[Rfam]
A member of the RNA family "Actino-pnp RNA" from Pilimelia terevasa, 77 nucleotides long. The match comes from Rfam's covariance-model search (61 bits). The organism belongs to Pilimelia, within Bacteria. It is annotated as a cis-regulatory element.

RNA sequence: ACCGGUCCUCGGUAGUGGCCCCCGGCGAGUCGACGCACAGGGUCGGCGCCCGCCGGGAGCUUCGAUCGAAGACCGGC
Numbered sequence: 001a002c003c004g005g006u007c008c009u010c011g012g013u014a015g016u017g018g019c020c021c022c023c024g025g026c027g028a029g030u031c032g033a034c035g036c037a038c039a040g041g042g043u044c045g046g047c048g049c050c051c052g053c054c055g056g057g058a059g060c061u062u063c064g065a066u067c068g069a070a071g072a073c074c075g076g077c
Stems, first nucleotide, its partner, number of pairs: 002076006009069005017061003021057007029049001